[Rfam]
RNA sequence: GGAGAUUUGAGAGGAUUUGACCUUAGUACGAGAGGACCGGGUUGAACAAACCUCUGGUGUUCCGGUUGUCGCGCCAGCGGCAGCGCCGGGUAGCCAGGUUUGGAGCGGAUAACUGCUGAAAGCAUCUAAGCAGGAAGCCGACCUCAAGAUAAGAUCUCCCAAGCCGUAAGGCUUCUGAAGACUCCCGGAAGACCACCGGGUUGAUAGGCUGGGGAUGGAAGCGCGGCAACGCGUGGAGUCGACCAGUACUAAUCGUCGUGCG
Numbered sequence: 001g002g003a004g005a006u007u008u009g010a011g012a013g014g015a016u017u018u019g020a021c022c023u024u025a026g027u028a029c030g031a032g033a034g035g036a037c038c039g040g041g042u043u044g045a046a047c048a049a050a051c052c053u054c055u056g057g058u059g060u061u062c063c064g065g066u067u068g069u070c071g072c073g074c075c076a077g078c079g080g081c082a083g084c085g086c087c088g089g090g091u092a093g094c095c096a097g098g099u100u101u102g103g104a105g106c107g108g109a110u111a112a113c114u115g116c117u118g119a120a121a122g123c124a125u126c127u128a129a130g131c132a133g134g135a136a137g138c139c140g141a142c143c144u145c146a147a148g149a150u151a152a153g154a155u156c157u158c159c160c161a162a163g164c165c166g167u168a169a170g171g172c173u174u175c176u177g178a179a180g181a182c183u184c185c186c187g188g189a190a191g192a193c194c195a196c197c198g199g200g201u202u203g204a205u206a207g208g209c210u211g212g213g214g215a216u217g218g219a220a221g222c223g224c225g226g227c228a229a230c231g232c233g234u235g236g237a238g239u240c241g242a243c244c245a246g247u248a249c250u251a252a253u254c255g256u257c258g259u260g261c262g
Base pairs, nucleotide, nucleotide: 001159002158003157004156005155006154007153008152011145012144013143014142017045018044019043020042021041022040023039047102048101049100050099051098055096056095057094062089063088064087065086066085067082068081069080070079071078072077106140107139108138113133114132115131116130117129162173163172164171177259180257181256182255184200185199186198187197188196205251206250207249208247209246210245211244212243214240215239221234222233223232224231225230

Annotation: The family of this 262-nucleotide part of an RNA from an uncultured bacterium is "Bacterial large subunit ribosomal RNA". Pairs were carried over by alignment from the consensus structure, which is taken from published work. Gene Ontology terms of the family: ribosome and structural constituent of ribosome.